[Rfam]
RNA sequence: GGGGGUGUUACGGUUUCGACUAGGAAGUGAAAAAUUGAUUGCAUGCGGAGGAUAUCGGUUGGCCUCCUAAAAAAACCGGUAAAACAAUAAAUGCAGACAAAAUCGUCCGCUUCGACUUCAGCCCAGUUGCUGAGCUCGAAUUAGCUGCAGCUUAAGAUUUAAUUAUCUUAGUUGCCCGAUAGCCUGAGAUUGGACCAAGGGUCUUAGAAUCUAUCGUCAUUUUCUUGGUAUGAAAUGUCUUUUCCGCCGCUUCUAGGGAAGAGAUUUCGAGACUAAAUGAAGCAAACUAAUCUUAUUGGCGCGUUCUACAUUGAGAUUAGGGAUUUGAAAGAACGAUAAGCAUGUAGUAGUCAGUUCGUAAUUUGCCAAGGACGAGAGUUCAAUUCUCUCCACCUCCAACA
Number, nucleotide and partner (000 for none) at each position: 001g397002g396003g395004g394005g393006u392007g391008u000009u000010a000011c000012g000013g000014u000015u000016u000017c000018g000019a000020c370021u369022a000023g367024g366025a000026a364027g363028u000029g000030a359031a000032a000033a356034a355035u354036u353037g352038a351039u350040u349041g348042c344043a343044u342045g341046c340047g067048g066049a065050g064051g063052a000053u000054a080055u079056c078057g077058g076059u075060u074061g000062g000063c051064c050065u049066c048067c047068u000069a000070a000071a000072a000073a000074a060075a059076c058077c057078g056079g055080u054081a000082a000083a000084a000085c000086a000087a000088u000089a000090a000091a000092u000093g000094c000095a000096g000097a000098c000099a000100a000101a000102a000103u000104c000105g000106u000107c000108c000109g000110c000111u000112u000113c000114g000115a000116c000117u000118u000119c000120a000121g000122c000123c000124c000125a000126g000127u000128u000129g000130c000131u000132g000133a000134g000135c000136u000137c000138g000139a000140a000141u000142u000143a000144g000145c000146u000147g175148c174149a173150g172151c171152u170153u000154a168155a000156g000157a000158u000159u000160u000161a000162a000163u000164u000165a000166u000167c000168u154169u000170a152171g151172u150173u149174g148175c147176c000177c216178g215179a214180u213181a212182g211183c000184c207185u206186g205187a204188g203189a202190u201191u000192g000193g000194a229195c228196c227197a226198a225199g224200g000201g190202u189203c188204u187205u186206a185207g184208a000209a000210u000211c182212u181213a180214u179215c178216g177217u000218c000219a000220u000221u000222u000223u000224c199225u198226u197227g196228g195229u194230a000231u000232g268233a267234a266235a265236u264237g000238u262239c261240u260241u000242u000243u000244c000245c000246g000247c000248c000249g283250c282251u281252u280253c279254u000255a000256g000257g000258g000259a000260a240261g239262a238263g000264a236265u235266u234267u233268c232269g000270a000271g000272a000273c000274u000275a000276a000277a000278u000279g253280a252281a251282g250283c249284a000285a000286a000287c320288u319289a318290a317291u316292c315293u314294u313295a312296u000297u000298g000299g000300c335301g334302c000303g000304u333305u332306c000307u000308a000309c000310a000311u000312u295313g294314a293315g292316a291317u290318u289319a288320g287321g000322g000323a000324u000325u000326u000327g000328a000329a000330a000331g000332a305333a304334c301335g300336a000337u000338a000339a000340g046341c045342a044343u043344g042345u000346a000347g000348u041349a040350g039351u038352c037353a036354g035355u034356u033357c000358g000359u030360a000361a000362u000363u027364u026365g000366c024367c023368a000369a021370g020371g000372a000373c000374g390375a389376g388377a387378g386379u000380u000381c000382a000383a000384u000385u000386c378387u377388c376389u375390c374391c007392a006393c005394c004395u003396c002397c001398a000399a000400c000401a000
The record is a 401-nucleotide sequence from Candidatus Protochlamydia naegleriophila, which matches "transfer-messenger RNA" in Rfam. Bacterial tmRNA, also known as 10Sa RNA or SsrA, is named for its dual tRNA and mRNA-like properties. Its role is to liberate the mRNA from a stalled ribosome. To accomplish this part of the tmRNA is used as a reading frame that ends in a translation stop signal. On this family, see Mao et al., RNA Biol 2010: "Variations on the tmRNA gene". The match comes from Rfam's covariance-model search (158 bits). The family's consensus secondary structure is taken from published work.